[Rfam]
RNA sequence: AAUGAAAUGUAGGGGGGCCGGUGUUGCCGGUUGAGAUUUCGUUCUUGAAACGAUGACCCUUGGAACCUGAUCUGGUUAAUACCGGCGGAGGGAACAUAUUCUUAAACAAA
Numbered sequence: 001a002a003u004g005a006a007a008u009g010u011a012g013g014g015g016g017g018c019c020g021g022u023g024u025u026g027c028c029g030g031u032u033g034a035g036a037u038u039u040c041g042u043u044c045u046u047g048a049a050a051c052g053a054u055g056a057c058c059c060u061u062g063g064a065a066c067c068u069g070a071u072c073u074g075g076u077u078a079a080u081a082c083c084g085g086c087g088g089a090g091g092g093a094a095c096a097u098a099u100u101c102u103u104a105a106a107c108a109a110a
Stems, first nucleotide, its partner, number of pairs: 007097004011060004016054001017031005039053004066091003072085004

TPP riboswitch aptamer (THI element): a 110-nucleotide RNA from Bacillus sp. MUM 116. Lineage of the source: Bacteria > Bacillati > Bacilli > Caryophanales > Bacillus.